[Rfam]
Nucleotides: 076
Base pairs, nucleotide, nucleotide: 012044014043015042016041017040020076021075022074023073024072025071026070027039048065049064050063051062052061053060054059
Number, partner (000 for none) and nucleotide at each position: 001000u002000g003000a004000c005000u006000g007000c008000c009000a010000c011000a012044g013000c014043g015042g016041c017040c018000a019000u020076a021075g022074c023073a024072g025071a026070a027039g028000c029000a030000c031000u032000c033000a034000u035000c036000u037000c038000a039027c040017g041016g042015c043014c044012c045000c046000g047000u048065c049064a050063g051062a052061u053060u054059c055000u056000a057000a058000c059054g060053g061052a062051u063050c064049u065048g066000c067000a068000a069000a070026u071025u072024c073023u074022g075021c076020u